[Rfam]
RNA: Bacterial RNase P class A
Organism: Pleomorphomonas diazotrophica
RNA sequence: CCAGUCGGUCGGACGACCGCGCGGACAUCAGGCGAAAGCCCGUCCGGGAGGAAAGUCCGGGCUCCACGGAAACACGGUGCCGGGUAACGCCCGGCGAGGGCGACCUCAGGGAAAGUGCCACAGAGAUCGAACCGCCCCGGUGCGCCGGGGUAAGGGUGAAAAGGUGGUGUAAGAGACCACCGCGGGCCCGGCAACGGGACCGGCAUGGCAAACCCCACCGGGAGCAAGACCGAAUAGGGAUGACGCGGGCCUCGGCCCAGCCUGUUUCCGGGCCAGUCGUCCGGGUUGGUUGCACGAGGCGUCCGGCAACGGCCGUCCCAGAUGAAUGGUCGUCAGGCGGGAAACCGCUCACAGAACCCGGCUUACAGACCGACUGGCUUU
Numbered sequence: 001c002c003a004g005u006c007g008g009u010c011g012g013a014c015g016a017c018c019g020c021g022c023g024g025a026c027a028u029c030a031g032g033c034g035a036a037a038g039c040c041c042g043u044c045c046g047g048g049a050g051g052a053a054a055g056u057c058c059g060g061g062c063u064c065c066a067c068g069g070a071a072a073c074a075c076g077g078u079g080c081c082g083g084g085u086a087a088c089g090c091c092c093g094g095c096g097a098g099g100g101c102g103a104c105c106u107c108a109g110g111g112a113a114a115g116u117g118c119c120a121c122a123g124a125g126a127u128c129g130a131a132c133c134g135c136c137c138c139g140g141u142g143c144g145c146c147g148g149g150g151u152a153a154g155g156g157u158g159a160a161a162a163g164g165u166g167g168u169g170u171a172a173g174a175g176a177c178c179a180c181c182g183c184g185g186g187c188c189c190g191g192c193a194a195c196g197g198g199a200c201c202g203g204c205a206u207g208g209c210a211a212a213c214c215c216c217a218c219c220g221g222g223a224g225c226a227a228g229a230c231c232g233a234a235u236a237g238g239g240a241u242g243a244c245g246c247g248g249g250c251c252u253c254g255g256c257c258c259a260g261c262c263u264g265u266u267u268c269c270g271g272g273c274c275a276g277u278c279g280u281c282c283g284g285g286u287u288g289g290u291u292g293c294a295c296g297a298g299g300c301g302u303c304c305g306g307c308a309a310c311g312g313c314c315g316u317c318c319c320a321g322a323u324g325a326a327u328g329g330u331c332g333u334c335a336g337g338c339g340g341g342a343a344a345c346c347g348c349u350c351a352c353a354g355a356a357c358c359c360g361g362c363u364u365a366c367a368g369a370c371c372g373a374c375u376g377g378c379u380u381u
Stems, first nucleotide, its partner, number of pairs: 001377010011366001012334007020048001022046005053364003057361005062224004071267002075220005080094005095109001096107004110215002115213002117209003132155002134151007163181006182204001183202003187198004228291004238282006260273004298317004303312003